[Rfam]
Nucleotides: 082
Base pairs, nucleotide, nucleotide: 001081002080003079004078046054047053048052
Number, partner (000 for none) and nucleotide at each position: 001081a002080g003079c004078c005000g006000g007000u008000g009000a010000u011000g012000a013000c014000a015000u016000a017000c018000a019000u020000a021000a022000u023000u024000u025000u026000u027000u028000c029000u030000g031000a032000c033000a034000c035000c036000u037000c038000g039000u040000a041000u042000g043000a044000g045000a046054g047053c048052u049000u050000c051000c052048a053047g054046c055000u056000c057000c058000u059000g060000a061000u062000u063000c064000u065000a066000a067000u068000c069000g070000u071000u072000a073000u074000c075000u076000g077000a078004g079003g080002c081001u082000u
The record is an 82-nucleotide RNA from Channa argus, which matches "Small nucleolar RNA SNORD60" in Rfam. By type it is a C/D-box small nucleolar RNA. The organism belongs to Channa, within Eukaryota. Its family is annotated with nucleolus and RNA processing in the Gene Ontology.